[Rfam]
RNA sequence: CUACAAUGAUGGCAAUGUUUUUUGUCAACAGAAGUUCACUCAAUGAGUGUUGAUUCUUUGGGUUUGAGUGA
Numbered sequence: 001c002u003a004c005a006a007u008g009a010u011g012g013c014a015a016u017g018u019u020u021u022u023u024g025u026c027a028a029c030a031g032a033a034g035u036u037c038a039c040u041c042a043a044u045g046a047g048u049g050u051u052g053a054u055u056c057u058u059u060g061g062g063u064u065u066g067a068g069u070g071a
Stems, first nucleotide, its partner, number of pairs: 002070003008026004